[Rfam]
RNA sequence: UGGCUGCAAUCAACAUUCAUUGCUGUCGGUGGGUUUGGGGUUCAGGAAGCCCUCUGGCCAAUGAAUGCAAACUGCGGACCA
Numbered sequence: 001u002g003g004c005u006g007c008a009a010u011c012a013a014c015a016u017u018c019a020u021u022g023c024u025g026u027c028g029g030u031g032g033g034u035u036u037g038g039g040g041u042u043c044a045g046g047a048a049g050c051c052c053u054c055u056g057g058c059c060a061a062u063g064a065a066u067g068c069a070a071a072c073u074g075c076g077g078a079c080c081a
Stems, first nucleotide, its partner, number of pairs: 001081003004077005014067009025058005031052001033050004